[Rfam]
RNA sequence: UUGUUGUGAUUAUCUUUAGGACACCUUUGGAAUACCUAUGAAAAAACCCAGUAAGUUCUUUCUGAGCAAC
Numbered sequence: 001u002u003g004u005u006g007u008g009a010u011u012a013u014c015u016u017u018a019g020g021a022c023a024c025c026u027u028u029g030g031a032a033u034a035c036c037u038a039u040g041a042a043a044a045a046a047c048c049c050a051g052u053a054a055g056u057u058c059u060u061u062c063u064g065a066g067c068a069a070c
Stems, first nucleotide, its partner, number of pairs: 001069004